Description: The family of this 64-nucleotide RNA sequence is "pemK RNA". The sequence is in the family's curated seed alignment.
RNA sequence: ACAAUGAUACUUCCGUAAUUCGCGGUCGGUCCACAAAGAAGGGGCGAGGGUGAAACUCCCAUGG
Numbered sequence: 001a002c003a004a005u006g007a008u009a010c011u012u013c014c015g016u017a018a019u020u021c022g023c024g025g026u027c028g029g030u031c032c033a034c035a036a037a038g039a040a041g042g043g044g045c046g047a048g049g050g051u052g053a054a055a056c057u058c059c060c061a062u063g064g
Base pairs, nucleotide, nucleotide: 012061013025014024015023016022026047027046028045030043031042032041048060049059050058